[Rfam]
RNA sequence: GGACAUAAACGCGCUCGUAAUAAGCGGAUCGGACCCGGGGGCGGUACCCGGCGGCUCCACCAAAAUCCUUCAUUUGGGGAUCAUGGGGCCGAAACAGGAUCGACGAACGUCUAAAGGGGUUUGCUUUGUCUCGGUGAGAUACCACCGUUAUCGGUUCACAUAAGCUAGUUGCAAAUGACAACAAAGCACCGAUGGCACUCGCAGCCUAA
Numbered sequence: 001g002g003a004c005a006u007a008a009a010c011g012c013g014c015u016c017g018u019a020a021u022a023a024g025c026g027g028a029u030c031g032g033a034c035c036c037g038g039g040g041g042c043g044g045u046a047c048c049c050g051g052c053g054g055c056u057c058c059a060c061c062a063a064a065a066u067c068c069u070u071c072a073u074u075u076g077g078g079g080a081u082c083a084u085g086g087g088g089c090c091g092a093a094a095c096a097g098g099a100u101c102g103a104c105g106a107a108c109g110u111c112u113a114a115a116g117g118g119g120u121u122u123g124c125u126u127u128g129u130c131u132c133g134g135u136g137a138g139a140u141a142c143c144a145c146c147g148u149u150a151u152c153g154g155u156u157c158a159c160a161u162a163a164g165c166u167a168g169u170u171g172c173a174a175a176u177g178a179c180a181a182c183a184a185a186g187c188a189c190c191g192a193u194g195g196c197a198c199u200c201g202c203a204g205c206c207u208a209a
Base pairs, nucleotide, nucleotide: 001131002130003129004128005127013120014119015118016117025109026108029106030105031104035051036050037049038048039047052091053090054089055088056087057086058085132147133146134145135144
Dot-bracket structure: (((((.......((((........((..(((...(((((.......)))))(((((((..........................)))))))............))).)).......))))......)))))((((........))))..............................................................
A member of the RNA family "permuted transfer-messenger RNA" from Yoonia litorea, 209 nucleotides long. Rfam classes the family as a non-coding RNA gene. NCBI's taxonomy places the organism under Bacteria, Pseudomonadati, Pseudomonadota, Rhodobacterales, Yoonia. The literature on the family includes a 2002 paper in Nucleic Acids Res by Laslett et al., "BRUCE: a program for the detection of transfer-messenger RNA genes in nucleotide sequences". Gene Ontology term of the family: RNA catabolic process.